RNA sequence: GCUGCCCUGGACCUGUCAGCACCACAGGUGUGGCGGCUCUGCUGCGCCUGUGACAUCAGGGGCAAAGAGGAAGUGGCUAUUUCUACACUCAGUGUUCCGACCAGUGAGCACUAAGAAUGGUUUAUAGCCUGACAGUC
Numbered sequence: 001g002c003u004g005c006c007c008u009g010g011a012c013c014u015g016u017c018a019g020c021a022c023c024a025c026a027g028g029u030g031u032g033g034c035g036g037c038u039c040u041g042c043u044g045c046g047c048c049u050g051u052g053a054c055a056u057c058a059g060g061g062g063c064a065a066a067g068a069g070g071a072a073g074u075g076g077c078u079a080u081u082u083c084u085a086c087a088c089u090c091a092g093u094g095u096u097c098c099g100a101c102c103a104g105u106g107a108g109c110a111c112u113a114a115g116a117a118u119g120g121u122u123u124a125u126a127g128c129c130u131g132a133c134a135g136u137c
Stems, first nucleotide, its partner, number of pairs: 003064004007059004024051004075129003083120003088115002093110005